[Rfam]
transfer-messenger RNA: a 362-nucleotide RNA sequence. The literature on the family includes a 2003 paper in Nucleic Acids Res by Zwieb et al., "tmRDB (tmRNA database)". Pairs were carried over by alignment from the consensus structure, which is taken from published work. From the family's description: Bacterial tmRNA, also known as 10Sa RNA or SsrA, is named for its dual tRNA and mRNA-like properties. It is annotated as a non-coding RNA gene.
RNA sequence: GGGGAUGUCUUGGUAUCGACAGGGAUUGUUUGAGCUUAUAUGGCGAGUCGAGGGAUUCGGCCUCGUAAAAACGAUAAAGCCUAUAACUGGCAAACAAAACAACAACUUCGCUUUCGCUGCCUAAUAACAGUCGAUCGCGGUUCCUCCCUCCAUCGUCCAUGUGGUAGGGUAAGGGACUCAUUCUAAGUGGACUACGCCGGAUUCCACCGUCUGAGGAUGAAGGAAGAGACGAACCAGACUAGCUGCUUCCAUGCCUGUCAGUAGGCUAACGAAGUAAGUGAAAUCAAUUCUACUGACUACACUCGUAGAAGUAUAAGUGCCAAGAUCUUUGCACACGGGUUCAACUCCCGUCAUUUCCACUA
Numbered sequence: 001g002g003g004g005a006u007g008u009c010u011u012g013g014u015a016u017c018g019a020c021a022g023g024g025a026u027u028g029u030u031u032g033a034g035c036u037u038a039u040a041u042g043g044c045g046a047g048u049c050g051a052g053g054g055a056u057u058c059g060g061c062c063u064c065g066u067a068a069a070a071a072c073g074a075u076a077a078a079g080c081c082u083a084u085a086a087c088u089g090g091c092a093a094a095c096a097a098a099a100c101a102a103c104a105a106c107u108u109c110g111c112u113u114u115c116g117c118u119g120c121c122u123a124a125u126a127a128c129a130g131u132c133g134a135u136c137g138c139g140g141u142u143c144c145u146c147c148c149u150c151c152a153u154c155g156u157c158c159a160u161g162u163g164g165u166a167g168g169g170u171a172a173g174g175g176a177c178u179c180a181u182u183c184u185a186a187g188u189g190g191a192c193u194a195c196g197c198c199g200g201a202u203u204c205c206a207c208c209g210u211c212u213g214a215g216g217a218u219g220a221a222g223g224a225a226g227a228g229a230c231g232a233a234c235c236a237g238a239c240u241a242g243c244u245g246c247u248u249c250c251a252u253g254c255c256u257g258u259c260a261g262u263a264g265g266c267u268a269a270c271g272a273a274g275u276a277a278g279u280g281a282a283a284u285c286a287a288u289u290c291u292a293c294u295g296a297c298u299a300c301a302c303u304c305g306u307a308g309a310a311g312u313a314u315a316a317g318u319g320c321c322a323a324g325a326u327c328u329u330u331g332c333a334c335a336c337g338g339g340u341u342c343a344a345c346u347c348c349c350g351u352c353a354u355u356u357c358c359a360c361u362a
Base pairs, nucleotide, nucleotide: 001358002357003356004355005354006353007352020331021330022329023328024327025326026325027324029322032320034318035317036316037315038314039313040312041311044305045304046303047302048301049065050064051063052062053061057074058073059072114134115133116131117130118129119128140177141176142175143174144173145172146169147168148167149166150164151163152162153161155192156191157190158189159188160187197223198222203217204216205215209240212237242279243278244276245275246274247273248272249271253266254265255264257297258296259295260294261291263289335351336350337349338348339347